[Rfam]
This 140-nucleotide RNA from Caenorhabditis bovis belongs to the Rfam family "U4 spliceosomal RNA". By type it is a spliceosomal small nuclear RNA. The base pairs follow the family's consensus structure, which is taken from published work. Gene Ontology terms of the family: U4 snRNP and spliceosomal tri-snRNP complex assembly. Rfam describes the family as follows. U4 small nuclear RNA (U4 snRNA) is a component of the major U2-dependent spliceosome. It scores 117 bits against the family's covariance model.
RNA sequence: AGCUUUGCGCUGGGGGGAUAACGUGACCAAUGAGGCUCUGCCGAGGUGCGUUUAUUGCUGGUUGAAAACUUUUCCCAAUUGCCCGCGAUGACCCCUGAAAUACGGGUGUCAUACGCAAUUUUUGAACGGUCCGAACGGGC
Numbered sequence: 001a002g003c004u005u006u007g008c009g010c011u012g013g014g015g016g017g018a019u020a021a022c023g024u025g026a027c028c029a030a031u032g033a034g035g036c037u038c039u040g041c042c043g044a045g046g047u048g049c050g051u052u053u054a055u056u057g058c059u060g061g062u063u064g065a066a067a068a069c070u071u072u073u074c075c076c077a078a079u080u081g082c083c084c085g086c087g088a089u090g091a092c093c094c095c096u097g098a099a100a101u102a103c104g105g106g107u108g109u110c111a112u113a114c115g116c117a118a119u120u121u122u123u124g125a126a127c128g129g130u131c132c133g134a135a136c137g138g139g140c
Base pairs, nucleotide, nucleotide: 020052021051022050023049024048026047027046028045034042035041036040085116086115087114088112089111090110091109092108094106095105096104097103129140130139131138132137